[Rfam]
RNA sequence: GACGCCUGUGCCUGCUGUGCCGACAAGCAGUGUGUUUCUAACUGGCUCAGUUCAGCAGGAACAGGGG
Numbered sequence: 001g002a003c004g005c006c007u008g009u010g011c012c013u014g015c016u017g018u019g020c021c022g023a024c025a026a027g028c029a030g031u032g033u034g035u036u037u038c039u040a041a042c043u044g045g046c047u048c049a050g051u052u053c054a055g056c057a058g059g060a061a062c063a064g065g066g067g
Base pairs, nucleotide, nucleotide: 003067005065006064008062009061011059012058013057015055016054017053019051020050022048023047028044029043030042031041
Description
This 67-nucleotide RNA from Clupea harengus belongs to the Rfam family "mir-24 microRNA precursor family". A reference for the family is Ambros (2001), "microRNAs: tiny regulators with great potential", Cell. This family represents the microRNA (miRNA) mir-24 family. miRNAs are transcribed as ~70nt precursors (modelled here) and subsequently processed by the Dicer enzyme to give a ~22nt product. In this case the mature sequence comes from the 3' arm of the precursor. The extents of the hairpin precursors are not generally known and are estimated based on hairpin prediction. Taxonomically the source falls in Clupea (Eukaryota, Teleostomi, Actinopteri, Osteoglossocephalai). Its family is annotated with miRNA-mediated post-transcriptional gene silencing and RISC complex in the Gene Ontology.